Shown here is a 67-nucleotide RNA from Symbiodinium natans, a member of the family "mir-8/mir-141/mir-200 microRNA precursor family".
The family's consensus secondary structure was predicted with RNAalifold.
The match comes from Rfam's covariance-model search (50 bits).
Rfam 15.1 lists 2,669 matches to the family in 883 species.
The source organism's lineage runs through Eukaryota, Sar, Dinophyceae, Suessiales and Symbiodinium.
On this family, see Lagos-Quintana et al., Science 2001: "Identification of novel genes coding for small expressed RNAs".
Its Rfam clan is "mir-8 microRNA precursor clan".

RNA sequence: GUCGCCGUUUUACUGGGCAAGGUCGAUUUUUUGACCAAAAUCGACCUUGCCCAGUAAAAACGGCGAC
Numbered sequence: 001g002u003c004g005c006c007g008u009u010u011u012a013c014u015g016g017g018c019a020a021g022g023u024c025g026a027u028u029u030u031u032u033g034a035c036c037a038a039a040a041u042c043g044a045c046c047u048u049g050c051c052c053a054g055u056a057a058a059a060a061c062g063g064c065g066a067c
Stems, first nucleotide, its partner, number of pairs: 002066008010057017